[Rfam]
RNA sequence: UUAAUGGACGGCUAGGGUUCCGGCUACCACAUCAGGUAGUGACUGGUCCGAGAGCUGUCGACCUUAUCUGCAUUGGCAUGUUGGCAUCCAGAUAGGUUACACGGCGGGAUAAAAGCCCGGGAGGC
Numbered sequence: 001u002u003a004a005u006g007g008a009c010g011g012c013u014a015g016g017g018u019u020c021c022g023g024c025u026a027c028c029a030c031a032u033c034a035g036g037u038a039g040u041g042a043c044u045g046g047u048c049c050g051a052g053a054g055c056u057g058u059c060g061a062c063c064u065u066a067u068c069u070g071c072a073u074u075g076g077c078a079u080g081u082u083g084g085c086a087u088c089c090a091g092a093u094a095g096g097u098u099a100c101a102c103g104g105c106g107g108g109a110u111a112a113a114a115g116c117c118c119g120g121g122a123g124g125c
Stems, first nucleotide, its partner, number of pairs: 007059006015049002020046002022043001023040006060098005100120001102123001106118003